[Rfam]
RNA sequence: UUGCAAGUUCAAGGCCAUAGCAGAAAUGCUGAUGGCUGGCCUGUCAGAUUCUAACAAAAUCUGCAAAUUCUGCU
Numbered sequence: 001u002u003g004c005a006a007g008u009u010c011a012a013g014g015c016c017a018u019a020g021c022a023g024a025a026a027u028g029c030u031g032a033u034g035g036c037u038g039g040c041c042u043g044u045c046a047g048a049u050u051c052u053a054a055c056a057a058a059a060u061c062u063g064c065a066a067a068u069u070c071u072g073c074u
Stems, first nucleotide, its partner, number of pairs: 013041004019074007026037001028036001045063006